[Rfam]
RNA sequence: CGAGGCUCGCCCCGUACAGAUGGCCAGGUGUCGCUCAUUCGUUGAGCUACCUGUGCCGUCCUUUUCGCGAGCGGGUUAAGGUCUGAGUAUUCUAGUCAUUCUCGAUCGGUCCUAGCAGGAUCUGAGCAUAAAACCUCCCGCUCACAACGACGUAUCAGAAAUUCACUCUUGUCCGCCCUUAUACUCGUCUUCGGUCGGUGCCUCGUGUAUCGACUCUAGCCCAAAGACAUUUUUCUUCGGGAAAUCGAGGGCGAAAAAAGCUCGAGUGGGCUUAAGAGUUUGGAAAUCGUCGUAAUGACUGGGCGAAUUUAUGGGUUAUAUCUUUUUGCAUCUGAUGUGAAGAGGUAUUCCUUUCUUUCGUCCUUCAGCUCACUUCGCUGUGCGCCUAGCAUGGAUUUCCUUUGGUGGUCCAGGGCGUAACUCGAUUCAGACUACUCUUUG
Numbered sequence: 001c002g003a004g005g006c007u008c009g010c011c012c013c014g015u016a017c018a019g020a021u022g023g024c025c026a027g028g029u030g031u032c033g034c035u036c037a038u039u040c041g042u043u044g045a046g047c048u049a050c051c052u053g054u055g056c057c058g059u060c061c062u063u064u065u066c067g068c069g070a071g072c073g074g075g076u077u078a079a080g081g082u083c084u085g086a087g088u089a090u091u092c093u094a095g096u097c098a099u100u101c102u103c104g105a106u107c108g109g110u111c112c113u114a115g116c117a118g119g120a121u122c123u124g125a126g127c128a129u130a131a132a133a134c135c136u137c138c139c140g141c142u143c144a145c146a147a148c149g150a151c152g153u154a155u156c157a158g159a160a161a162u163u164c165a166c167u168c169u170u171g172u173c174c175g176c177c178c179u180u181a182u183a184c185u186c187g188u189c190u191u192c193g194g195u196c197g198g199u200g201c202c203u204c205g206u207g208u209a210u211c212g213a214c215u216c217u218a219g220c221c222c223a224a225a226g227a228c229a230u231u232u233u234u235c236u237u238c239g240g241g242a243a244a245u246c247g248a249g250g251g252c253g254a255a256a257a258a259a260g261c262u263c264g265a266g267u268g269g270g271c272u273u274a275a276g277a278g279u280u281u282g283g284a285a286a287u288c289g290u291c292g293u294a295a296u297g298a299c300u301g302g303g304c305g306a307a308u309u310u311a312u313g314g315g316u317u318a319u320a321u322c323u324u325u326u327u328g329c330a331u332c333u334g335a336u337g338u339g340a341a342g343a344g345g346u347a348u349u350c351c352u353u354u355c356u357u358u359c360g361u362c363c364u365u366c367a368g369c370u371c372a373c374u375u376c377g378c379u380g381u382g383c384g385c386c387u388a389g390c391a392u393g394g395a396u397u398u399c400c401u402u403u404g405g406u407g408g409u410c411c412a413g414g415g416c417g418u419a420a421c422u423c424g425a426u427u428c429a430g431a432c433u434a435c436u437c438u439u440u441g
Base pairs, nucleotide, nucleotide: 001377002376003375005072006071007070008069009068019060020059021058022057023056024055083430084429085428086427087426094300095299096298097297108122109121110120111119112118123144124143125142126141127140147293148292149291150290151289152288166278167277168276169275170274171273382418383417384416385415386414387413